This 80-nucleotide sequence from Bos grunniens belongs to the Rfam family "mir-132 microRNA precursor family". A reference for the family is Chen et al. (2005), "The developmental miRNA profiles of zebrafish as determined by small RNA cloning", Genes Dev. Pairs were carried over by alignment from the consensus structure, which was predicted with RNAalifold.
RNA sequence: GCGCGCCGGCACCUUGGCUCUAGACUGCUUACUGCCGGCCGCCCUCAGUAACAGUCUCCAGUCACGGCCACCGACGCCUG
Numbered sequence: 001g002c003g004c005g006c007c008g009g010c011a012c013c014u015u016g017g018c019u020c021u022a023g024a025c026u027g028c029u030u031a032c033u034g035c036c037g038g039c040c041g042c043c044c045u046c047a048g049u050a051a052c053a054g055u056c057u058c059c060a061g062u063c064a065c066g067g068c069c070a071c072c073g074a075c076g077c078c079u080g
Base pairs, nucleotide, nucleotide: 012067013066015064016063017062018061023056024055025054026053027052029051030050031049032048033047